[Rfam]
RNA sequence: GGGCAAGGAAGGAGGAGUGCUUCGGCUUCCCACCCUGCUUACGCAGACGGGCCGAGCGAAAGUCCCCCAGUUAGGGGGCCGCCUGUAGAGGGUGAGGCCUCCUUGCAUAGAAAUGUGAGCCUGAAAGGGCAGACCUCCUUCCAUUUGGCGUUAGCUGGAUACUUGGGGCUGAGACAAGUGUGGAGCCCCUUUCCACUAGAACGUCAUACGGGGGAGCAGCUGACUAUACCACAGUCAUGCACUCUCGCUUGCAACAGAACGGGGCUUACUCCCUCCUUGCC
Numbered sequence: 001g002g003g004c005a006a007g008g009a010a011g012g013a014g015g016a017g018u019g020c021u022u023c024g025g026c027u028u029c030c031c032a033c034c035c036u037g038c039u040u041a042c043g044c045a046g047a048c049g050g051g052c053c054g055a056g057c058g059a060a061a062g063u064c065c066c067c068c069a070g071u072u073a074g075g076g077g078g079c080c081g082c083c084u085g086u087a088g089a090g091g092g093u094g095a096g097g098c099c100u101c102c103u104u105g106c107a108u109a110g111a112a113a114u115g116u117g118a119g120c121c122u123g124a125a126a127g128g129g130c131a132g133a134c135c136u137c138c139u140u141c142c143a144u145u146u147g148g149c150g151u152u153a154g155c156u157g158g159a160u161a162c163u164u165g166g167g168g169c170u171g172a173g174a175c176a177a178g179u180g181u182g183g184a185g186c187c188c189c190u191u192u193c194c195a196c197u198a199g200a201a202c203g204u205c206a207u208a209c210g211g212g213g214g215a216g217c218a219g220c221u222g223a224c225u226a227u228a229c230c231a232c233a234g235u236c237a238u239g240c241a242c243u244c245u246c247g248c249u250u251g252c253a254a255c256a257g258a259a260c261g262g263g264g265c266u267u268a269c270u271c272c273c274u275c276c277u278u279g280c281c
Base pairs, nucleotide, nucleotide: 002281003280004279005278006277007276008275009274011273012272015244016243017242018241019240020239022056023054024053025052026051027050028049060267061266062265064264065263066262067261106117107116108115109114119130120129121128122127146206147205148204149203150202151201155199156198157197158196166188167187168186169185176181246251
RNase MRP: a 281-nucleotide RNA sequence from Adiantum capillus-veneris.
The family is grouped with related families in Rfam's "RNaseP clan".
The source organism's lineage runs through Eukaryota, Streptophyta, Euphyllophyta, Polypodiales and Adiantum.
For this family Rfam cites "Secondary structure of RNase MRP RNA as predicted by phylogenetic comparison" (Schmitt et al., FASEB J, 1993).
RNase MRP is an enzymatically active ribonucleoprotein with two distinct roles in eukaryotes.
Its family is annotated with rRNA processing, ribonuclease MRP activity and ribonuclease MRP complex in the Gene Ontology.